ACEA small nucleolar RNA U3: a 168-nucleotide RNA from Polarella glacialis.
It is annotated as a C/D-box small nucleolar RNA.
Rfam describes the family as follows. Small nucleolar RNAs (snoRNAs) are involved in the processing and modification of rRNA in the nucleolus. There are two main classes of snoRNAs: the box C/D class, and the box H/ACA class.
On this family, see Marz and Stadler, RNA Biol 2010: "Comparative analysis of eukaryotic U3 snoRNA".
The base pairs follow the family's consensus structure, which is taken from published work.
Rfam links the family to the GO terms nucleolus and RNA processing.
The match comes from Rfam's covariance-model search (56 bits).
RNA sequence: GCGGCUGUACUUGCACAGGAUUACUGCUACAGUGAUUCCUCUUGCAUACAUGUCAUGACAUAGAUCUUCACAGCAUCUCUGAUGAUGUCGAUCUCUGCACUGAUAAGGAAUUUGCUGGAGCUUGCUCCCAGCUUGAUGAAAGCUAUCAGUGCAGUCUUCUGAAGAGGU
Numbered sequence: 001g002c003g004g005c006u007g008u009a010c011u012u013g014c015a016c017a018g019g020a021u022u023a024c025u026g027c028u029a030c031a032g033u034g035a036u037u038c039c040u041c042u043u044g045c046a047u048a049c050a051u052g053u054c055a056u057g058a059c060a061u062a063g064a065u066c067u068u069c070a071c072a073g074c075a076u077c078u079c080u081g082a083u084g085a086u087g088u089c090g091a092u093c094u095c096u097g098c099a100c101u102g103a104u105a106a107g108g109a110a111u112u113u114g115c116u117g118g119a120g121c122u123u124g125c126u127c128c129c130a131g132c133u134u135g136a137u138g139a140a141a142g143c144u145a146u147c148a149g150u151g152c153a154g155u156c157u158u159c160u161g162a163a164g165a166g167g168u
Base pairs, nucleotide, nucleotide: 001041003039006035008034009033010032011031017028018027020025047064050061051060052059053058076167077166078165079164080163095154096153097152098151100149101148102147103146104145105144107128108127109126131143132142133141134140